[Rfam]
RNA sequence: GGGGAGGAUGAAGAAAAAGUUCAAAGGCUGAAAGGUGAUGAGAGGGGACCUCGCUGAUG
Numbered sequence: 001g002g003g004g005a006g007g008a009u010g011a012a013g014a015a016a017a018a019g020u021u022c023a024a025a026g027g028c029u030g031a032a033a034g035g036u037g038a039u040g041a042g043a044g045g046g047g048a049c050c051u052c053g054c055u056g057a058u059g
Base pairs, nucleotide, nucleotide: 042052043051044050045049
This 59-nucleotide sequence from Pyrococcus abyssi belongs to the Rfam family "Small nucleolar RNA sR52". The base pairs follow the family's consensus structure, which was predicted with WAR. Its family is annotated with RNA processing and nucleolus in the Gene Ontology.